[Rfam]
RNA sequence: UGUGUAGAGGUGGGAAAAUAUGCCGUGUUUUCUUUCUAGGUAAAUCCUUACCUCUCGCAGU
Number, nucleotide and partner (000 for none) at each position: 001u000002g058003u057004g056005u000006a055007g054008a053009g052010g051011u050012g000013g049014g048015a000016a000017a045018a000019u000020a000021u000022g041023c040024c039025g000026u000027g000028u000029u000030u000031u000032c000033u000034u000035u000036c000037u000038a000039g024040g023041u022042a000043a000044a000045u017046c000047c000048u014049u013050a011051c010052c009053u008054c007055u006056c004057g003058c002059a000060g000061u000
The record is a 61-nucleotide sequence from Monodelphis domestica, which matches "mir-7398 microRNA precursor family" in Rfam. The match comes from Rfam's covariance-model search (61 bits). Rfam 15.1 lists 132 matches to the family in 4 species. The organism belongs to Monodelphis, within Eukaryota.